[Rfam]
RNA sequence: UGCAGAUGAUGUGAGAGAAUAUUUGCUAUCUGAACGAUGGUGAUGACAUUCUAGACCACCAAGAUCUCUGAUGCA
Dot-bracket structure: ((((...................................................................))))
Record summary: Small nucleolar RNA SNORD24: a 75-nucleotide sequence from Tupaia belangeri. The match comes from Rfam's covariance-model search (87 bits). Gene Ontology terms of the family: RNA processing and nucleolus. Lineage of the source: Eukaryota > Euteleostomi > Eutheria > Tupaiidae > Tupaia belangeri.